RNA sequence: CUGGGUGUGGCGCAGGAGGCAGCGCGGCGGCUUUGGGUGCCGCAGGUCGCGGGUUCGAUCCCCGCCGCCCAGA
Number, nucleotide and partner (000 for none) at each position: 001c072002u071003g070004g069005g068006u067007g066008u000009g000010g025011c024012g023013c022014a000015g000016g000017a000018g000019g000020c000021a000022g013023c012024g011025c010026g000027g043028c042029g041030g040031c039032u000033u000034u000035g000036g000037g000038u000039g031040c030041c029042g028043c027044a000045g000046g000047u000048c000049g065050c064051g063052g062053g061054u000055u000056c000057g000058a000059u000060c000061c053062c052063c051064g050065c049066c007067g006068c005069c004070c003071a002072g001073a000
Source information:
This 73-nucleotide sequence from Gemmobacter lutimaris belongs to the Rfam family "tRNA". It scores 58 bits against the family's covariance model. Rfam describes the family as follows. Transfer RNA (tRNA) molecules are approximately 80 nucleotides in length. The source organism's lineage runs through Bacteria, Alphaproteobacteria, Rhodobacterales, Paracoccaceae and Gemmobacter. Pairs were carried over by alignment from the consensus structure, which is taken from published work. Rfam classes the family as a transfer RNA.